[Rfam]
RNA sequence: GGGUUAAUGAUGAUAACAAAACUUAUCUUAGCGGAUUUCAUUGAGAUAUCUAUCAAUGAUCUGAUUGUUACACACACUGAACCUC
Numbered sequence: 001g002g003g004u005u006a007a008u009g010a011u012g013a014u015a016a017c018a019a020a021a022c023u024u025a026u027c028u029u030a031g032c033g034g035a036u037u038u039c040a041u042u043g044a045g046a047u048a049u050c051u052a053u054c055a056a057u058g059a060u061c062u063g064a065u066u067g068u069u070a071c072a073c074a075c076a077c078u079g080a081a082c083c084u085c
Stems, first nucleotide, its partner, number of pairs: 001085003005081001